[Rfam]
RNA sequence: GGUGCGGCCCGCAAGGGAUGAAGCCCCGGAAGGAAACCCGGGCGACCGGGGAGUACGUUCGGGUGCAGACCGGGGUCGCACCUUUCGUCUUGAAACACGG
Dot-bracket structure: ((((((((((....((......((((((...(....(((((....))))).....)...)))).))...)).))))))))))..((((........))))

Rfam assigns this 100-nucleotide part of an RNA from Ignicoccus hospitalis to the family "Archaeal large subunit ribosomal RNA". The family's consensus secondary structure is taken from published work. Rfam's curators put it in the seed alignment.